[Rfam]
RNA sequence: GCCGGGAGGGCGACGAAUACAAUACCCGAAAGGGGAAUAAGUCCGCGGUUUGUAUGGCCGUUUCGAACCUCCCGACUCCCUAAC
Numbered sequence: 001g002c003c004g005g006g007a008g009g010g011c012g013a014c015g016a017a018u019a020c021a022a023u024a025c026c027c028g029a030a031a032g033g034g035g036a037a038u039a040a041g042u043c044c045g046c047g048g049u050u051u052g053u054a055u056g057g058c059c060g061u062u063u064c065g066a067a068c069c070u071c072c073c074g075a076c077u078c079c080c081u082a083a084c
Base pairs, nucleotide, nucleotide: 001076003074004073005072006071007070008069009068012043013042014041016038025034026033027032045061046060047059048058049057
The family of this 84-nucleotide sequence from Pokkaliibacter plantistimulans is "sRNA-Xcc1".
The family's RNA type in Rfam is small RNA.
The source organism's lineage runs through Bacteria, Gammaproteobacteria, Oceanospirillales, Balneatrichaceae and Pokkaliibacter.
On this family, see Chen et al., RNA Biol 2011: "sRNA-Xcc1, an integron-encoded transposon- and plasmid-transferred trans-acting sRNA, is under the positive control of the key virulence regulators HrpG and HrpX of Xanthomonas campestris pathovar campestris".